[Rfam]
RNA sequence: GGCAAACCGCCGCCUAAUCGCCCGCGCGGGCGAGUCGGGGAACCAGGUAACUGGGGUGAAUCCGCGGUAGCGGUAGGGAUCCUUCCGUCCCGAACCCGUCAGCUAACCCGGCCGGCGGCCUAUGGGAGGACUG
Numbered sequence: 001g002g003c004a005a006a007c008c009g010c011c012g013c014c015u016a017a018u019c020g021c022c023c024g025c026g027c028g029g030g031c032g033a034g035u036c037g038g039g040g041a042a043c044c045a046g047g048u049a050a051c052u053g054g055g056g057u058g059a060a061u062c063c064g065c066g067g068u069a070g071c072g073g074u075a076g077g078g079a080u081c082c083u084u085c086c087g088u089c090c091c092g093a094a095c096c097c098g099u100c101a102g103c104u105a106a107c108c109c110g111g112c113c114g115g116c117g118g119c120c121u122a123u124g125g126g127a128g129g130a131c132u133g
Base pairs, nucleotide, nucleotide: 011117012116013115014114018033019032020031021030022029023028034112035111036110037109038108039107044053045052054097055096056095062073063072064071065070076091077090078089079088

Shown here is a 133-nucleotide RNA from Phytohabitans flavus, a member of the family "c-di-AMP riboswitch aptamer (ydaO/yuaA leader)".